[Rfam]
RNA sequence: CUGGUCUAACUGCUAUUGCAGAAACAUUCACAUUGCAGCCCCUGUCAGAUUCCAACAAAUCUGUGAAUUCUGCU
Numbered sequence: 001c002u003g004g005u006c007u008a009a010c011u012g013c014u015a016u017u018g019c020a021g022a023a024a025c026a027u028u029c030a031c032a033u034u035g036c037a038g039c040c041c042c043u044g045u046c047a048g049a050u051u052c053c054a055a056c057a058a059a060u061c062u063g064u065g066a067a068u069u070c071u072g073c074u
Stems, first nucleotide, its partner, number of pairs: 012039003018073006025035002046063006